A member of the RNA family "Small nucleolar RNA SNORA73 family" from Octopus sinensis, 237 nucleotides long. On this family, see Enright et al., RNA 1996: "5'ETS rRNA processing facilitated by four small RNAs: U14, E3, U17, and U3". Rfam 15.1 lists 2,326 matches to the family in 660 species. By type it is an H/ACA-box small nucleolar RNA. Clan: snR30-U17 clan.

RNA sequence: CCGACGUGAUUUAUGAGAUCAUUGCUAAAAUAUCUUGUAAGUGGCAAACGGGAGCUGACUUUACUGUACUCUUUGAGUACAGUUGUUUCGUGCAGUGAAAUCCCAUUCCACCAUGUCGGAAAUAAAUCUUGUCCCCUGGCUGAUAAAGUCAGGUGAGGACUUGAACAAAGUAUAUUCCAUAACUUCUCAUAGUCUCUUUGACUAUUACUGGGGAGUUAGACCAUACUCGGUACAGUC
Numbered sequence: 001c002c003g004a005c006g007u008g009a010u011u012u013a014u015g016a017g018a019u020c021a022u023u024g025c026u027a028a029a030a031u032a033u034c035u036u037g038u039a040a041g042u043g044g045c046a047a048a049c050g051g052g053a054g055c056u057g058a059c060u061u062u063a064c065u066g067u068a069c070u071c072u073u074u075g076a077g078u079a080c081a082g083u084u085g086u087u088u089c090g091u092g093c094a095g096u097g098a099a100a101u102c103c104c105a106u107u108c109c110a111c112c113a114u115g116u117c118g119g120a121a122a123u124a125a126a127u128c129u130u131g132u133c134c135c136c137u138g139g140c141u142g143a144u145a146a147a148g149u150c151a152g153g154u155g156a157g158g159a160c161u162u163g164a165a166c167a168a169a170g171u172a173u174a175u176u177c178c179a180u181a182a183c184u185u186c187u188c189a190u191a192g193u194c195u196c197u198u199u200g201a202c203u204a205u206u207a208c209u210g211g212g213g214a215g216u217u218a219g220a221c222c223a224u225a226c227u228c229g230g231u232a233c234a235g236u237c
Stems, first nucleotide, its partner, number of pairs: 001119007008034001010030003016023002041111004050104004054096003169227005183215006192202003